RNA sequence: AGCACUGUAUUUAGACCUGUGGAGGGGAAUUUUCUUGGCGAUGCUGUAGUGCAGAGGAAUCACUGGCUCUUUCUGUUGCACAGCUGACUUUGUGCCAUUCUGCUGGUGCUGUAUGGGGUUAAGGAUCAUAA
Dot-bracket structure: .((((((((......((...((((......))))..))......))))))))..........((((((((...((..(((((((.((...........)).)))).)))..)).)))))).))........

A member of the RNA family "Small nucleolar RNA SNORA46" from Ursus maritimus, 131 nucleotides long. From the family's description: ACA46 is a member of the H/ACA class of snoRNA that guide the sites of modification of uridines to pseudouridines. The family's consensus secondary structure was predicted with RNAfold. The family has 22 seed sequences and 582 matches in Rfam 15.1.